[Rfam]
RNA: MAT2A 3'UTR stem loop F
RNA sequence: CCGGGCGCGGCGCUGUGGCCGGUGUGGUACAGAGAAGCCGGCUUGUUUACUGCCCGCCCGG
Numbered sequence: 001c002c003g004g005g006c007g008c009g010g011c012g013c014u015g016u017g018g019c020c021g022g023u024g025u026g027g028u029a030c031a032g033a034g035a036a037g038c039c040g041g042c043u044u045g046u047u048u049a050c051u052g053c054c055c056g057c058c059c060g061g
Stems, first nucleotide, its partner, number of pairs: 001061007009054003012047001014045001017043007024030002